Rfam assigns this 121-nucleotide sequence from Thomasclavelia spiroformis to the family "Ribosomal protein L20 leader".
From the family's description: This family is a putative r-protein leader autoregulatory structure found in B. subtilis and other low-GC Gram-positive bacteria. It is located in the 5' untranslated regions of mRNAs encoding initiation factor 3 followed by ribosomal proteins L35 and L20 (infC-rpmI-rplT). A Rho-independent transcription terminator structure that is probably involved in regulation is included at the 3' end.
Lineage of the source: Bacteria > Bacillati > Bacillota > Thomasclavelia > Thomasclavelia spiroformis.
It is annotated as a cis-regulatory leader.
A search with the family's covariance model found it, with a score of 64 bits.
[Rfam]
RNA sequence: AGUGGAAAGAAGAAGUGCCUACUUCUCGCCUGAUUGAUAAUAUCGAUAGGCAAAUGUCACUAAGAUAGUUAUCUUAUUGUCAAUAUGUGGGUACUUAAUGUGCUCACUUUUUAUUUAAACU
Numbered sequence: 001a002g003u004g005g006a007a008a009g010a011a012g013a014a015g016u017g018c019c020u021a022c023u024u025c026u027c028g029c030c031u032g033a034u035u036g037a038u039a040a041u042a043u044c045g046a047u048a049g050g051c052a053a054a055u056g057u058c059a060c061u062a063a064g065a066u067a068g069u070u071a072u073c074u075u076a077u078u079g080u081c082a083a084u085a086u087g088u089g090g091g092u093a094c095u096u097a098a099u100g101u102g103c104u105c106a107c108u109u110u111u112u113a114u115u116u117a118a119a120c121u
Base pairs, nucleotide, nucleotide: 011026012025013024014023015022016021028051029050030049034046035045036044037043087107088106089105090104091103092102093101094100